A member of the RNA family "Actino-pnp RNA" from Mycobacterium fragae, 73 nucleotides long. Pairs were carried over by alignment from the consensus structure, which is taken from published work. The match comes from Rfam's covariance-model search (59 bits).

RNA sequence: AGCGGUCCUCGGUAGUGGCGGCCGGGCCCCCAGAAAGUGGGGCACAGUCCGGCCGCUUCGAUCGAUGGCCGUA
Numbered sequence: 001a002g003c004g005g006u007c008c009u010c011g012g013u014a015g016u017g018g019c020g021g022c023c024g025g026g027c028c029c030c031c032a033g034a035a036a037g038u039g040g041g042g043c044a045c046a047g048u049c050c051g052g053c054c055g056c057u058u059c060g061a062u063c064g065a066u067g068g069c070c071g072u073a
Stems, first nucleotide, its partner, number of pairs: 002072006009065005017057011